RNA sequence: CAGCUGUGGCCCAGUCCCCAGGAUUCACUUGGCACGGACAACUUGCUAAGUAAAGUGGGGGGUGGACCAUGGCUGG
Dot-bracket structure: ((((((.((.(((.(((((..(.((.((((((((.........)))))))).)).)))))).))).)).)))))).
RNA: mir-3943 microRNA precursor family